[Rfam]
RNA: speF leader
RNA sequence: UGCCGGCUUUCCAUCAGCCGGGGUUACUGUAGAGGCACACCCUCAUUGCCGGAAGUGCGGUCGGGUUCAUCCCCCCAAUCCAAGGCAGACAAAGCGGAAUGCACGCCCUGGCAGGCGUCGUUCCACCAAUCGCGCAUACAUGCGCAUGCUUG
Numbered sequence: 001u002g003c004c005g006g007c008u009u010u011c012c013a014u015c016a017g018c019c020g021g022g023g024u025u026a027c028u029g030u031a032g033a034g035g036c037a038c039a040c041c042c043u044c045a046u047u048g049c050c051g052g053a054a055g056u057g058c059g060g061u062c063g064g065g066u067u068c069a070u071c072c073c074c075c076c077a078a079u080c081c082a083a084g085g086c087a088g089a090c091a092a093a094g095c096g097g098a099a100u101g102c103a104c105g106c107c108c109u110g111g112c113a114g115g116c117g118u119c120g121u122u123c124c125a126c127c128a129a130u131c132g133c134g135c136a137u138a139c140a141u142g143c144g145c146a147u148g149c150u151u152g
Base pairs, nucleotide, nucleotide: 001023003021004020005019006018007017008016034050035049036048037047057135058134059133085095104117105116106115107114